[Rfam]
RNA sequence: UGCGAGUAUUUUCGAUUAAGAAGCAACUGCUUCUUGUACAGAUCAUGUAUUAAUCU
Number, nucleotide and partner (000 for none) at each position: 001u000002g000003c000004g000005a000006g000007u000008a000009u000010u000011u000012u000013c000014g000015a000016u000017u036018a035019a034020g033021a032022a031023g030024c029025a000026a000027c000028u000029g024030c023031u022032u021033c020034u019035u018036g017037u000038a000039c000040a000041g000042a000043u000044c000045a000046u000047g000048u000049a000050u000051u000052a000053a000054u000055c000056u000
Source information:
Rfam assigns this 56-nucleotide sequence from Kingdonia uniflora to the family "Plastid-rps18 3UTR RNA". Taxonomically the source falls in Kingdonia (Eukaryota, Embryophyta, Tracheophyta, Magnoliopsida). A search with the family's covariance model found it, with a score of 76 bits. Rfam describes the family as follows. Plastid rps18 is a non-coding RNA (ncRNA) present in plastids. It was identified as a short stem-loop motif in the 3 prime untranslate region (3UTR) of rps18 gene. On this family, see Richter et al., Plant Commun 2023: "Retrograde signaling in plants: A critical review focusing on the GUN pathway and beyond".